[Rfam]
RNA sequence: CGAGUCGGUCGGGCGAUCGCUGCCCGGAUGCCAGUGAUGGCAACCGGGGAGAGGAAAGUCCGGGCUCCACAGGGCAGGGUGCCAGGUAACGCCUGGGGGGCGCGAGCCUACGGAAAGUGCAACAGAAAGGAUACCGCCGCGCACUUCGUGUACGCGGUAAGGGUGAAAAGGUGCGGUAAGAGCGCACCGCGCGGCUGGCAACAGGCGCGGCGAUGGUAAACCCCACCUGGAGCAAGACCAAAUAGGAAUCCGCACGCUGCGGCCCGCAGUGGAUUCGGGUAGGUCGCUAAAGACAGGCGGCGACGCCUGUCAUAGAUGAAUGAUCGUCCUCGACAGAACCCGGCUUACAGACCGACUCUUUUU
Numbered sequence: 001c002g003a004g005u006c007g008g009u010c011g012g013g014c015g016a017u018c019g020c021u022g023c024c025c026g027g028a029u030g031c032c033a034g035u036g037a038u039g040g041c042a043a044c045c046g047g048g049g050a051g052a053g054g055a056a057a058g059u060c061c062g063g064g065c066u067c068c069a070c071a072g073g074g075c076a077g078g079g080u081g082c083c084a085g086g087u088a089a090c091g092c093c094u095g096g097g098g099g100g101c102g103c104g105a106g107c108c109u110a111c112g113g114a115a116a117g118u119g120c121a122a123c124a125g126a127a128a129g130g131a132u133a134c135c136g137c138c139g140c141g142c143a144c145u146u147c148g149u150g151u152a153c154g155c156g157g158u159a160a161g162g163g164u165g166a167a168a169a170g171g172u173g174c175g176g177u178a179a180g181a182g183c184g185c186a187c188c189g190c191g192c193g194g195c196u197g198g199c200a201a202c203a204g205g206c207g208c209g210g211c212g213a214u215g216g217u218a219a220a221c222c223c224c225a226c227c228u229g230g231a232g233c234a235a236g237a238c239c240a241a242a243u244a245g246g247a248a249u250c251c252g253c254a255c256g257c258u259g260c261g262g263c264c265c266g267c268a269g270u271g272g273a274u275u276c277g278g279g280u281a282g283g284u285c286g287c288u289a290a291a292g293a294c295a296g297g298c299g300g301c302g303a304c305g306c307c308u309g310u311c312a313u314a315g316a317u318g319a320a321u322g323a324u325c326g327u328c329c330u331c332g333a334c335a336g337a338a339c340c341c342g343g344c345u346u347a348c349a350g351a352c353c354g355a356c357u358c359u360u361u362u363u
Stems, first nucleotide, its partner, number of pairs: 002358009011348001012328007020051002023048005056346003060343005065232004072265004077228005082096005097111001098109004112223002117221002119217002134162002136158006143151002170188006189211001190209004195204003236285004246276006256270005292311008
The family of this 363-nucleotide sequence from Pseudohaliea rubra is "Bacterial RNase P class A". The literature on the family includes a 1999 paper in Nucleic Acids Res by Brown, "The Ribonuclease P Database". It is annotated as a ribozyme. Pairs were carried over by alignment from the consensus structure, which is taken from published work. The organism belongs to Pseudohaliea rubra, within Bacteria.